[Rfam]
Background:
Shown here is a 69-nucleotide RNA from Candidula unifasciata, a member of the family "mir-71 microRNA precursor family". The family has 36 seed sequences and 372 matches in Rfam 15.1. The organism belongs to Candidula, within Eukaryota.
RNA sequence: GUGUUGUGAAAGACAUGGGUAGUGAGAUGUUACAUCAGGUCAUCUUACUACUCUGUCUUUUGCAUCACG
Numbered sequence: 001g002u003g004u005u006g007u008g009a010a011a012g013a014c015a016u017g018g019g020u021a022g023u024g025a026g027a028u029g030u031u032a033c034a035u036c037a038g039g040u041c042a043u044c045u046u047a048c049u050a051c052u053c054u055g056u057c058u059u060u061u062g063c064a065u066c067a068c069g
Stems, first nucleotide, its partner, number of pairs: 008061008017053003021049009